[Rfam]
Shown here is a 61-nucleotide RNA sequence from Pyrus ussuriensis x Pyrus communis, a member of the family "Plastid-psbA-4 3UTR RNA". Rfam describes the family as follows. Plastid psbA-4 is a non-coding RNA (ncRNA) present in plastids. It was identified in inverted repeat sequences in the 3 prime untranslate region (3UTR) of photosystem II quinone-binding protein (psbA). Taxonomically the source falls in Pyrus (Eukaryota, Viridiplantae, Streptophyta, fabids). The base pairs follow the family's consensus structure, which was predicted with LocARNA. By type it is a cis-regulatory element. A search with the family's covariance model found it, with a score of 59 bits.

Nucleotides: 061
Stems, first nucleotide, its partner, number of pairs: 006059010017048001021044001024041006
Number, partner (000 for none) and nucleotide at each position: 001000a002000u003000c004000u005000u006059a007058a008057a009056g010055g011054a012053g013052u014051a015050a016000c017048a018000a019000a020000a021044a022000a023000u024041u025040u026039c027038u028037u029036g030000u031000u032000a033000u034000a035000u036029c037028a038027a039026g040025a041024g042000g043000c044021u045000u046000g047000u048017u049000a050015u051014u052013g053012c054011u055010c056009u057008u058007u059006u060000a061000c